RNA sequence: CUGCGGGGAUGAUCCACCGAACUCUCUCUUGCCGAUGGCCCCGUGGGGAGACUCUUCCUCAGGCUCUGAGCAGC
Number, nucleotide and partner (000 for none) at each position: 001c073002u072003g071004c070005g000006g000007g000008g000009a000010u000011g000012a000013u000014c000015c000016a000017c000018c000019g000020a000021a000022c000023u000024c000025u000026c000027u000028c000029u000030u000031g000032c000033c000034g000035a000036u000037g000038g000039c000040c000041c000042c000043g000044u000045g000046g000047g000048g000049a000050g000051a000052c000053u000054c000055u000056u000057c000058c000059u000060c000061a000062g000063g000064c000065u000066c000067u000068g000069a000070g004071c003072a002073g001074c000
This 74-nucleotide RNA sequence from Nyctiprogne leucopyga belongs to the Rfam family "Small nucleolar RNA SNORD26".
Its Rfam clan is "SNORD26 clan".
A search with the family's covariance model found it, with a score of 49 bits.
The literature on the family includes a 1996 paper in Nature by Tycowski et al., "A mammalian gene with introns instead of exons generating stable RNA products".